The record is a 75-nucleotide RNA from Myotis myotis, which matches "mir-9229 microRNA precursor family" in Rfam.
Pairs were carried over by alignment from the consensus structure, which was predicted with RNAalifold.
The family has 7 seed sequences and 27,225 matches in Rfam 15.1.
RNA sequence: AGUCACCGUUAUGGGGCAAGACUUGCUUCAGUGGGCCUUUGGUGCUCACUGAGCCUGCCCCCUGAGUGUGUCCCU
Numbered sequence: 001a002g003u004c005a006c007c008g009u010u011a012u013g014g015g016g017c018a019a020g021a022c023u024u025g026c027u028u029c030a031g032u033g034g035g036c037c038u039u040u041g042g043u044g045c046u047c048a049c050u051g052a053g054c055c056u057g058c059c060c061c062c063u064g065a066g067u068g069u070g071u072c073c074c075u
Base pairs, nucleotide, nucleotide: 002072004070005069006068009065010064011063013061014060015059016058017057018056020055022053028052029051030050031049032048033047034046035045037042